RNA sequence: GACGAUAAAGUGCACUGUGUAAUAGGCACAACGGACCCGGGGGCAGUACCCGGCGGCUCCACCAAAAGCGGCGGUUUUGCGCCGUUCCUGAUGGGGCCGAACUAGGAUCGACGUGUGUUGAAAGGCUUUGUUUUCGUUCGGGCUGAGUAACCCGUUUAAGGCUCACAAACCAUAAGUGCAAAUGACAAUGAAGCACUCGCAAUCGCCGCGUAA
Numbered sequence: 001g002a003c004g005a006u007a008a009a010g011u012g013c014a015c016u017g018u019g020u021a022a023u024a025g026g027c028a029c030a031a032c033g034g035a036c037c038c039g040g041g042g043g044c045a046g047u048a049c050c051c052g053g054c055g056g057c058u059c060c061a062c063c064a065a066a067a068g069c070g071g072c073g074g075u076u077u078u079g080c081g082c083c084g085u086u087c088c089u090g091a092u093g094g095g096g097c098c099g100a101a102c103u104a105g106g107a108u109c110g111a112c113g114u115g116u117g118u119u120g121a122a123a124g125g126c127u128u129u130g131u132u133u134u135c136g137u138u139c140g141g142g143c144u145g146a147g148u149a150a151c152c153c154g155u156u157u158a159a160g161g162c163u164c165a166c167a168a169a170c171c172a173u174a175a176g177u178g179c180a181a182a183u184g185a186c187a188a189u190g191a192a193g194c195a196c197u198c199g200c201a202a203u204c205g206c207c208g209c210g211u212a213a
Stems, first nucleotide, its partner, number of pairs: 001138005017126002027117003031114003037053005054099007139154004
RNA: permuted transfer-messenger RNA